[Rfam]
RNA sequence: GUGGGAGCUUAGCUAUGUGGUUACUUCGUUUUAUCAAAUAUCUAUGGAGAUGUUUCAAACUUGUGCGACUACAGGCGCAAUCUCCCGCGUUC
Numbered sequence: 001g002u003g004g005g006a007g008c009u010u011a012g013c014u015a016u017g018u019g020g021u022u023a024c025u026u027c028g029u030u031u032u033a034u035c036a037a038a039u040a041u042c043u044a045u046g047g048a049g050a051u052g053u054u055u056c057a058a059a060c061u062u063g064u065g066c067g068a069c070u071a072c073a074g075g076c077g078c079a080a081u082c083u084c085c086c087g088c089g090u091u092c
Stems, first nucleotide, its partner, number of pairs: 002087006012076003017072004026068004
The record is a 92-nucleotide RNA from Octopus sinensis, which matches "Vault RNA" in Rfam. The match comes from Rfam's covariance-model search (43 bits). About the family: This family of RNAs are found as part of the enigmatic vault ribonucleoprotein complex. The complex consists of a major vault protein (MVP), two minor vault proteins (VPARP and TEP1), and several small untranslated RNA molecules. It has been suggested that the vault complex is involved in drug resistance.